Rfam assigns this 72-nucleotide RNA sequence from Phenylobacterium zucineum to the family "tRNA". Rfam classes the family as a transfer RNA. NCBI's taxonomy places the organism under Bacteria, Pseudomonadati, Pseudomonadota, Phenylobacterium, Phenylobacterium zucineum.
RNA sequence: GCGGGUGUAGUUCAGAGGUAGAACGUCAGCUUCCCAAGCUGAAUGUCAGGGGUUCGAUUCCCCUCACCCGCU
Numbered sequence: 001g002c003g004g005g006u007g008u009a010g011u012u013c014a015g016a017g018g019u020a021g022a023a024c025g026u027c028a029g030c031u032u033c034c035c036a037a038g039c040u041g042a043a044u045g046u047c048a049g050g051g052g053u054u055c056g057a058u059u060c061c062c063c064u065c066a067c068c069c070g071c072u
Base pairs, nucleotide, nucleotide: 001071002070003069004068005067006066007065010024011023012022013021026042027041028040029039030038048064049063050062051061052060